[Rfam]
Nucleotides: 068
Base pairs, nucleotide, nucleotide: 001036002035003034004033005032006031007030017029018028019027043056044055045054046053047052
Number, partner (000 for none) and nucleotide at each position: 001036g002035c003034u004033g005032c006031u007030c008000a009000u010000a011000u012000a013000u014000g015000c016000u017029a018028c019027c020000u021000c022000u023000c024000c025000g026000u027019g028018g029017u030007g031006a032005g033004c034003a035002g036001u037000a038000g039000g040000c041000a042000a043056c044055g045054g046053a047052u048000c049000u050000c051000u052047a053046u054045c055044c056043g057000g058000c059000u060000a061000a062000a063000g064000c065000a066000u067000g068000u

The record is a 68-nucleotide sequence from Faecalibacterium prausnitzii, which matches "HDV ribozyme from F. prausnitzii" in Rfam. Gene Ontology term of the family: catalytic activity. Pairs were carried over by alignment from the consensus structure, which is taken from published work. The family has 48 seed sequences and 3,803 matches in Rfam 15.1. Taxonomically the source falls in Faecalibacterium prausnitzii (Bacteria, Bacillati, Bacillota, Eubacteriales). For this family Rfam cites "Widespread occurrence of self-cleaving ribozymes" (Webb et al., Science, 2009).